[Rfam]
RNA sequence: GGAAGUGGAAAGCUCACUGGUGGGGCUCCCGGACUUCAAAUCCGGUGUAACGGGCUAAAACCUCGUUAGGUGGGUUCGAUUCCCAUGCACUUCC
Numbered sequence: 001g002g003a004a005g006u007g008g009a010a011a012g013c014u015c016a017c018u019g020g021u022g023g024g025g026c027u028c029c030c031g032g033a034c035u036u037c038a039a040a041u042c043c044g045g046u047g048u049a050a051c052g053g054g055c056u057a058a059a060a061c062c063u064c065g066u067u068a069g070g071u072g073g074g075u076u077c078g079a080u081u082c083c084c085a086u087g088c089a090c091u092u093c094c
Base pairs, nucleotide, nucleotide: 001094002093003092004091005090006089007088009086012027014025015024017022029045030044031043032042033041048068049067050066051065052064071085072084073083074082
RNA: Selenocysteine transfer RNA
Organism: delta proteobacterium NaphS2